Shown here is a 166-nucleotide RNA sequence from Orthopestivirus bovis, a member of the family "Pestivirus 3' UTR SLIV and SLII bovine viral diarrhea virus (BVDV-1)". Rfam classes the family as a small RNA.
RNA sequence: AACAGAUGUAUAUAUUAUAAAUAUAUACAUCUAUAUGUACAUAGUGUAUAUAAGUAUAGUUGAGAUAGUCUACCUCAAGACAAUGACAUGCUCAACUUGCACAGCUAAAUGAUGGUUGAGUUUAUCUACCUCAAGAUAACACUACAAUCAACGCACAUAGCACUUU
Numbered sequence: 001a002a003c004a005g006a007u008g009u010a011u012a013u014a015u016u017a018u019a020a021a022u023a024u025a026u027a028c029a030u031c032u033a034u035a036u037g038u039a040c041a042u043a044g045u046g047u048a049u050a051u052a053a054g055u056a057u058a059g060u061u062g063a064g065a066u067a068g069u070c071u072a073c074c075u076c077a078a079g080a081c082a083a084u085g086a087c088a089u090g091c092u093c094a095a096c097u098u099g100c101a102c103a104g105c106u107a108a109a110u111g112a113u114g115g116u117u118g119a120g121u122u123u124a125u126c127u128a129c130c131u132c133a134a135g136a137u138a139a140c141a142c143u144a145c146a147a148u149c150a151a152c153g154c155a156c157a158u159a160g161c162a163c164u165u166u
Base pairs, nucleotide, nucleotide: 002047003046006042007041008040009039010038011037012036013035059152060151061150062149063148068143099142111140122138126135127134